[Rfam]
Small nucleolar RNA SNORA70: a 134-nucleotide sequence from Pogona vitticeps. A reference for the family is Charette and Gray (2000), "Pseudouridine in RNA: what, where, how, and why", IUBMB Life. It scores 106 bits against the family's covariance model. Gene Ontology terms of the family: nucleolus and RNA processing.
RNA sequence: ACGCAGUCAAUUAAGCCGACCAACCCCUGCUGCUAUCAGUGGCUGGUGUGCACUGGCUGCGCACAGCAAACCCCUUGGUUGUGUACGUGCUCCGUGCCUCAUACAGAGCACCUUAAGGGACCUUGGGAACACUU
Numbered sequence: 001a002c003g004c005a006g007u008c009a010a011u012u013a014a015g016c017c018g019a020c021c022a023a024c025c026c027c028u029g030c031u032g033c034u035a036u037c038a039g040u041g042g043c044u045g046g047u048g049u050g051c052a053c054u055g056g057c058u059g060c061g062c063a064c065a066g067c068a069a070a071c072c073c074c075u076u077g078g079u080u081g082u083g084u085a086c087g088u089g090c091u092c093c094g095u096g097c098c099u100c101a102u103a104c105a106g107a108g109c110a111c112c113u114u115a116a117g118g119g120a121c122c123u124u125g126g127g128a129a130c131a132c133u134u
Base pairs, nucleotide, nucleotide: 003051004050005049019047020046021045022044025041027039028038077122078121079120088110089109090108091107092106